Notes: mir-214 microRNA precursor family: a 99-nucleotide sequence from Myotis lucifugus. For this family Rfam cites "Identification of novel chicken microRNAs and analysis of their genomic organization" (Shao et al., Gene, 2008). NCBI's taxonomy places the organism under Eukaryota, Opisthokonta, Euteleostomi, Yangochiroptera, Myotis.

RNA sequence: UGGACGGAGUUGUCAUGUGUCUGCCUGUCUACACUUGCUGUGCAGAACAUCCGCUCACCUGUACAGCAGGCACAACCCAGCCUGAAUGACAACCAGCCA
Numbered sequence: 001u002g003g004a005c006g007g008a009g010u011u012g013u014c015a016u017g018u019g020u021c022u023g024c025c026u027g028u029c030u031a032c033a034c035u036u037g038c039u040g041u042g043c044a045g046a047a048c049a050u051c052c053g054c055u056c057a058c059c060u061g062u063a064c065a066g067c068a069g070g071c072a073c074a075a076c077c078c079a080g081c082c083u084g085a086a087u088g089a090c091a092a093c094c095a096g097c098c099a
Stems, first nucleotide, its partner, number of pairs: 018084001019082001022079002027077001030074001034070001036068006043061003